RNA sequence: AAUUUUGUUCUUUGGAACAAAGAGAAGCAGAUUUAUUCUAUAAUCGAUAACUACCAGUAUGCAAUGGGG
Numbered sequence: 001a002a003u004u005u006u007g008u009u010c011u012u013u014g015g016a017a018c019a020a021a022g023a024g025a026a027g028c029a030g031a032u033u034u035a036u037u038c039u040a041u042a043a044u045c046g047a048u049a050a051c052u053a054c055c056a057g058u059a060u061g062c063a064a065u066g067g068g069g
Stems, first nucleotide, its partner, number of pairs: 003022002006019005044067002052059002
Dot-bracket structure: ..((.(((((....))))).)).....................((......((....))......))..
The record is a 69-nucleotide sequence from Lactuca saligna, which matches "Plastid-clpP 5UTR RNA" in Rfam. Rfam describes the family as follows. Plastid clpP is a non-coding RNA (ncRNA) recognised in plastids. It was found in the prime untranslated region (5UTR) of a protease complex subunit (clpP) in plastids, suggesting a posible cis-regulatory function. A reference for the family is Richter et al. (2023), "Retrograde signaling in plants: A critical review focusing on the GUN pathway and beyond", Plant Commun. The base pairs follow the family's consensus structure, which was predicted with LocARNA. It is annotated as a cis-regulatory element. Taxonomically the source falls in Lactuca (Eukaryota, eudicotyledons, campanulids, Cichorieae).